[Rfam]
Nucleotides: 091
Stems, first nucleotide, its partner, number of pairs: 008082004015076001016074002018071002021068003024063003028059001030057002
Number, partner (000 for none) and nucleotide at each position: 001000g002000g003000a004000c005000u006000g007000a008082g009081u010080g011079a012000g013000u014000g015076g016074g017073a018071a019070c020000c021068a022067c023066u024063c025062u026061g027000a028059g029000u030057u031056c032000g033000c034000u035000a036000c037000g038000u039000g040000u041000u042000u043000u044000u045000a046000u047000u048000u049000g050000u051000c052000g053000a054000g055000u056031g057030a058000a059028c060000a061026c062025a063024g064000c065000u066023g067022g068021u069000g070019g071018u072000a073017u074016c075000u076015c077000a078000g079011u080010c081009a082008c083000u084000u085000a086000a087000u088000a089000c090000c091000c

The family of this 91-nucleotide RNA from Orchesella cincta is "mir-317 microRNA precursor family". The base pairs follow the family's consensus structure, which was predicted with RNAalifold. Taxonomically the source falls in Orchesella (Eukaryota, Metazoa, Entomobryoidea, Orchesellinae). A search with the family's covariance model found it, with a score of 68 bits. Rfam links the family to the GO terms RISC complex and miRNA-mediated post-transcriptional gene silencing.